Shown here is a 60-nucleotide RNA sequence from Papaver nudicaule, a member of the family "Plastid-psbN 5UTR RNA". The family's RNA type in Rfam is cis-regulatory element. Rfam 15.1 lists 2,345 matches to the family in 397 species. Plastid psbN is a non-coding RNA (ncRNA) recognised in plastids. It was reported as a conserved 11 stem-loop in the prime untranslated region (5UTR) of psbN genes. It has been reported that the motif is retained in a subset of mature transcripts in barley, which can suggests a possible role in transcript alternative 5 prime processing. Taxonomically the source falls in Papaver (Eukaryota, Tracheophyta, Magnoliopsida, Papaveroideae).
[Rfam]
RNA sequence: UGGUGGCCAUAUCAAGAGGUAGUUCCCCAGCCAGGAGCUACUUUACCAUAUUCCGAAUUC
Numbered sequence: 001u002g003g004u005g006g007c008c009a010u011a012u013c014a015a016g017a018g019g020u021a022g023u024u025c026c027c028c029a030g031c032c033a034g035g036a037g038c039u040a041c042u043u044u045a046c047c048a049u050a051u052u053c054c055g056a057a058u059u060c
Base pairs, nucleotide, nucleotide: 016044017043018042019041020040021039022038023037024036025035026034